[Rfam]
RNA sequence: UGAACCAGAAGAGGCGCGCCGCCCAGGCAAGGUUCCGGAGGAUCCGUUUUCCGUUGAAAGAACCCGAGGGGGAGCGGCGCCGAGGUGGCGGUGAAUGCACGGGAUUUCCGCUACCGACCGCAUGGGCUGAAUCCCCUGGGUUGUCACCCGCAUAUUCGCCGUUGGGCGAUAGGCACGGUGGGGCGCUUCUGGGCGU
Numbered sequence: 001u002g003a004a005c006c007a008g009a010a011g012a013g014g015c016g017c018g019c020c021g022c023c024c025a026g027g028c029a030a031g032g033u034u035c036c037g038g039a040g041g042a043u044c045c046g047u048u049u050u051c052c053g054u055u056g057a058a059a060g061a062a063c064c065c066g067a068g069g070g071g072g073a074g075c076g077g078c079g080c081c082g083a084g085g086u087g088g089c090g091g092u093g094a095a096u097g098c099a100c101g102g103g104a105u106u107u108c109c110g111c112u113a114c115c116g117a118c119c120g121c122a123u124g125g126g127c128u129g130a131a132u133c134c135c136c137u138g139g140g141u142u143g144u145c146a147c148c149c150g151c152a153u154a155u156u157c158g159c160c161g162u163u164g165g166g167c168g169a170u171a172g173g174c175a176c177g178g179u180g181g182g183g184c185g186c187u188u189c190u191g192g193g194c195g196u
Stems, first nucleotide, its partner, number of pairs: 006191006016080007024072001031064005084115008093106002116142004121138002124135003144181005
The family of this 196-nucleotide sequence from Sodalis ligni is "Lysine riboswitch aptamer". Gene Ontology term of the family: lysine biosynthetic process. A search with the family's covariance model found it, with a score of 83 bits. Riboswitches are metabolite binding domains within certain messenger RNAs that serve as precision sensors for their corresponding targets. Allosteric rearrangement of mRNA structure is mediated by ligand binding, and this results in modulation of gene expression. This family includes riboswitches that sense lysine in a number of genes involved in lysine metabolism, including lysC. The literature on the family includes a 2003 paper in Nucleic Acids Res by Rodionov et al., "Regulation of lysine biosynthesis and transport genes in bacteria: yet another RNA riboswitch?". NCBI's taxonomy places the organism under Bacteria, Pseudomonadati, Pseudomonadota, Enterobacterales, Sodalis. Pairs were carried over by alignment from the consensus structure, which is taken from published work.